Notes: This 185-nucleotide RNA from Oryza sativa belongs to the Rfam family "MIR812 microRNA precursor family". Rfam links the family to the GO terms RISC complex and miRNA-mediated post-transcriptional gene silencing. The base pairs follow the family's consensus structure, which was predicted with RNAalifold. NCBI's taxonomy places the organism under Eukaryota, Streptophyta, commelinids, Poaceae, Oryza sativa. It scores 117 bits against the family's covariance model.
RNA sequence: UUUAAGUGGGUUUCUAUGUUUAACAUUUGACUGCCCGUUUUAUUUAAAAUAUUUUAAUGAUUAGUAUUUUUAUUAUUAUUAGAUGGUAAAACAUGAAUAGUACUCUAUGCGUAACUUUUUUAUAAAUUUUCGAAAUAAGUUGGACGGUUAAACGUUGUACAUGGAAACUAAUAACUGCAUUUAAA
Numbered sequence: 001u002u003u004a005a006g007u008g009g010g011u012u013u014c015u016a017u018g019u020u021u022a023a024c025a026u027u028u029g030a031c032u033g034c035c036c037g038u039u040u041u042a043u044u045u046a047a048a049a050u051a052u053u054u055u056a057a058u059g060a061u062u063a064g065u066a067u068u069u070u071u072a073u074u075a076u077u078a079u080u081a082g083a084u085g086g087u088a089a090a091a092c093a094u095g096a097a098u099a100g101u102a103c104u105c106u107a108u109g110c111g112u113a114a115c116u117u118u119u120u121u122a123u124a125a126a127u128u129u130u131c132g133a134a135a136u137a138a139g140u141u142g143g144a145c146g147g148u149u150a151a152a153c154g155u156u157g158u159a160c161a162u163g164g165a166a167a168c169u170a171a172u173a174a175c176u177g178c179a180u181u182u183a184a185a
Stems, first nucleotide, its partner, number of pairs: 019159001021157004026152008035143003039139005